[Rfam]
RNA sequence: GCAACUGUGUGUGACUGGCGGAACAUGGGGAACCAUGAGGGAGCACAUAGAUAAUCAGCCGUACGCCUGGGCAGAGGUA
Numbered sequence: 001g002c003a004a005c006u007g008u009g010u011g012u013g014a015c016u017g018g019c020g021g022a023a024c025a026u027g028g029g030g031a032a033c034c035a036u037g038a039g040g041g042a043g044c045a046c047a048u049a050g051a052u053a054a055u056c057a058g059c060c061g062u063a064c065g066c067c068u069g070g071g072c073a074g075a076g077g078u079a
Base pairs, nucleotide, nucleotide: 003052005050006049007048008047009046010045011044012043015040016039017067018066019065020064025036026035027034028033056074058072059071060070

A member of the RNA family "ZMP/ZTP riboswitch aptamer (pfl RNA motif)" from Paenibacillus silvestris, 79 nucleotides long.
Gene Ontology terms of the family: regulation of purine nucleotide biosynthetic process and one-carbon metabolic process.
The literature on the family includes a 2015 paper in Nat Struct Mol Biol by Jones and Ferre-D'Amare, "Recognition of the bacterial alarmone ZMP through long-distance association of two RNA subdomains".
The match comes from Rfam's covariance-model search (61 bits).